FMN riboswitch aptamer (RFN element): a 172-nucleotide sequence from Oxalicibacterium solurbis.
[Rfam]
RNA sequence: GUGCGUUCUCGGGGCGGGGUGUAAUUCCCCACCGGCGGUGAUGACAGCAAUGUCCAGCCCGCGAGCGUUCGAUGCGAUUCCGGUUUGCUUCCCUGCGAACCAUUGCGUCGAAGUCAGCAGAUCCGGUGUGAUUCCGGAGCCGACGGUACAGUCCGGAUGAUAGAGAACGGAA
Numbered sequence: 001g002u003g004c005g006u007u008c009u010c011g012g013g014g015c016g017g018g019g020u021g022u023a024a025u026u027c028c029c030c031a032c033c034g035g036c037g038g039u040g041a042u043g044a045c046a047g048c049a050a051u052g053u054c055c056a057g058c059c060c061g062c063g064a065g066c067g068u069u070c071g072a073u074g075c076g077a078u079u080c081c082g083g084u085u086u087g088c089u090u091c092c093c094u095g096c097g098a099a100c101c102a103u104u105g106c107g108u109c110g111a112a113g114u115c116a117g118c119a120g121a122u123c124c125g126g127u128g129u130g131a132u133u134c135c136g137g138a139g140c141c142g143a144c145g146g147u148a149c150a151g152u153c154c155g156g157a158u159g160a161u162a163g164a165g166a167a168c169g170g171a172a
Base pairs, nucleotide, nucleotide: 004169005168006167007166008165009164010163017029018028019027031152032151033142034141035062036061037060038059057140058139065118066117122138123137124136125135126134144155145154146153